[Rfam]
RNA sequence: UAAUUAUACCAUCCGGUGAAUGGCUGGGCUCAAGAGCCGAUGAAGGACGUGCCAAGCUGCGAAAAGCCUCGGCGAGGUGCAUGGAGCCUUUGAACCGAGGAUUUCCUAAUAGGACAUCCAAACACAUCUGUGUUGAUCAGUCAUGAUCGGGAACGCCCCGAACUGAAACAUCUUAGUAGGGGCAGGAAAAGAAAUCAAUUGAGAUGCCGUAAGUAACGGCGAGUGAAACCGGUAGAGUUCAAACUGAAUCCCUCCGGAAACGGAAGGGACAUGUGGUGUUAUAAGCCCGGUCAAUUACAGUCCCAGUCGAUGAAGUCGAACUUGUCUGGAACGUCAGACCAUAGAGUGUGAAAGUCACGUAGACGUAAAUCGAGGGAUUGUGACCGGUGUCUUGAGUACCGUGGGUCGGAAAUCCCGCGGGAAUUUGGGAGGCAUCAACUUCCAAAACUAAAUACAUCUUGAGACCGAUAGCGUAAUAGUAGGGUGACCGAAAGCUGAAAAGUACCCCAAGAAGGGAGGUGCAAAGUGCCUGAAAUCGGAUGGUGAUAGAGC
Numbered sequence: 001u002a003a004u005u006a007u008a009c010c011a012u013c014c015g016g017u018g019a020a021u022g023g024c025u026g027g028g029c030u031c032a033a034g035a036g037c038c039g040a041u042g043a044a045g046g047a048c049g050u051g052c053c054a055a056g057c058u059g060c061g062a063a064a065a066g067c068c069u070c071g072g073c074g075a076g077g078u079g080c081a082u083g084g085a086g087c088c089u090u091u092g093a094a095c096c097g098a099g100g101a102u103u104u105c106c107u108a109a110u111a112g113g114a115c116a117u118c119c120a121a122a123c124a125c126a127u128c129u130g131u132g133u134u135g136a137u138c139a140g141u142c143a144u145g146a147u148c149g150g151g152a153a154c155g156c157c158c159c160g161a162a163c164u165g166a167a168a169c170a171u172c173u174u175a176g177u178a179g180g181g182g183c184a185g186g187a188a189a190a191g192a193a194a195u196c197a198a199u200u201g202a203g204a205u206g207c208c209g210u211a212a213g214u215a216a217c218g219g220c221g222a223g224u225g226a227a228a229c230c231g232g233u234a235g236a237g238u239u240c241a242a243a244c245u246g247a248a249u250c251c252c253u254c255c256g257g258a259a260a261c262g263g264a265a266g267g268g269a270c271a272u273g274u275g276g277u278g279u280u281a282u283a284a285g286c287c288c289g290g291u292c293a294a295u296u297a298c299a300g301u302c303c304c305a306g307u308c309g310a311u312g313a314a315g316u317c318g319a320a321c322u323u324g325u326c327u328g329g330a331a332c333g334u335c336a337g338a339c340c341a342u343a344g345a346g347u348g349u350g351a352a353a354g355u356c357a358c359g360u361a362g363a364c365g366u367a368a369a370u371c372g373a374g375g376g377a378u379u380g381u382g383a384c385c386g387g388u389g390u391c392u393u394g395a396g397u398a399c400c401g402u403g404g405g406u407c408g409g410a411a412a413u414c415c416c417g418c419g420g421g422a423a424u425u426u427g428g429g430a431g432g433c434a435u436c437a438a439c440u441u442c443c444a445a446a447a448c449u450a451a452a453u454a455c456a457u458c459u460u461g462a463g464a465c466c467g468a469u470a471g472c473g474u475a476a477u478a479g480u481a482g483g484g485u486g487a488c489c490g491a492a493a494g495c496u497g498a499a500a501a502g503u504a505c506c507c508c509a510a511g512a513a514g515g516g517a518g519g520u521g522c523a524a525a526g527u528g529c530c531u532g533a534a535a536u537c538g539g540a541u542g543g544u545g546a547u548a549g550a551g552c
Base pairs, nucleotide, nucleotide: 007545008544009543010542011541012540013539014538015537016536022530023495024494027466028465029463030462031461032460033459034458036455044107045106046105047104048061049060050059067100068099069098070097071096072095076088077087078086112119113118136147137146138145139144154185155183156182157181158180159179165172166171195202196201206233207232208231209230216224217223236449237448238447239446244276245275246274253264254263255262256261287387288386289385290384299379300378301377302376315364316363317362321337323336324335326333340344346358347357348356399420400419401418402417403416404415405414427443428442429441430440431439482489483488
Dot-bracket structure: ......((((((((((.....(((..((((((((.(.......(((((((........))).....((((((...(((.......)))......))))))...))))....((....))................((((....))))......((((((.....((....))......))))).).........((....))...((((......((.....)).....))))..((((....(((......((((....)))).........)))..........((((........((((............(((...(.((.(......).)))..(...).(((.......)))...)))...........))))....))))...........(((((((........)))))))......(((((.......)))))..)))).....)..)))))).))...............((....))....))..................................).....)))))))))).......

Record summary: Rfam assigns this 552-nucleotide part of an RNA from an uncultured archaeon to the family "Archaeal large subunit ribosomal RNA". Its family is annotated with structural constituent of ribosome and ribosome in the Gene Ontology.